Rfam assigns this 110-nucleotide RNA from Gilvibacter sp. SZ-19 to the family "SAM riboswitch aptamer (S box leader)". It scores 82 bits against the family's covariance model. For this family Rfam cites "SAM recognition and conformational switching mechanism in the Bacillus subtilis yitJ S box/SAM-I riboswitch" (Lu et al., J Mol Biol, 2010). Taxonomically the source falls in Gilvibacter (Bacteria, Bacteroidota, Flavobacteriia, Flavobacteriales).
[Rfam]
RNA sequence: AUGUUAUCAAGAAAGGUGGAGGGAUUAGACCCUGUGAAGCCUUAGCAACCCUUUGUCUCUUCGUACAAAGAAGGUGCUAAAUUCUACCGGAUGUUCCGGAUAGAUAACUC
Numbered sequence: 001a002u003g004u005u006a007u008c009a010a011g012a013a014a015g016g017u018g019g020a021g022g023g024a025u026u027a028g029a030c031c032c033u034g035u036g037a038a039g040c041c042u043u044a045g046c047a048a049c050c051c052u053u054u055g056u057c058u059c060u061u062c063g064u065a066c067a068a069a070g071a072a073g074g075u076g077c078u079a080a081a082u083u084c085u086a087c088c089g090g091a092u093g094u095u096c097c098g099g100a101u102a103g104a105u106a107a108c109u110c
Stems, first nucleotide, its partner, number of pairs: 003108006013043005021032003026086004044078004049074002051070006082102001087099005